[Rfam]
RNA sequence: AUGAACUGGUAUCAGGGGGGGAUCUGGACGAUCCGGGGGAUAACCCGCGCAAGCGGGCGGCUGCUCUGAGAGCACAACCGACGCCCCGCAACACCUCAACAGCCGUCGCCCCGGUGCUCAGAUACCGUUCG
Number, nucleotide and partner (000 for none) at each position: 001a000002u131003g130004a129005a128006c000007u127008g126009g125010u124011a123012u122013c121014a000015g000016g000017g000018g000019g000020g034021g033022a032023u031024c000025u000026g000027g000028a000029c000030g000031a023032u022033c021034c020035g000036g087037g086038g085039g084040a000041u000042a000043a000044c057045c056046c055047g054048c053049g000050c000051a000052a000053g048054c047055g046056g045057g044058c080059g079060g078061c000062u074063g073064c072065u071066c070067u000068g000069a000070g066071a065072g064073c063074a062075c000076a000077a000078c060079c059080g058081a000082c000083g000084c039085c038086c037087c036088g000089c000090a000091a000092c000093a000094c000095c000096u000097c000098a000099a000100c000101a000102g000103c000104c000105g000106u000107c000108g000109c000110c000111c000112c000113g000114g000115u000116g000117c000118u000119c000120a000121g013122a012123u011124a010125c009126c008127g007128u005129u004130c003131g002
The record is a 131-nucleotide sequence from Salmonella enterica, which matches "EFASI RNA" in Rfam. The family's RNA type in Rfam is small RNA. The sequence is in the family's curated seed alignment. Taxonomically the source falls in Salmonella enterica subsp. houtenae serovar 50:g,z51:- (Bacteria, Pseudomonadati, Enterobacterales, Salmonella).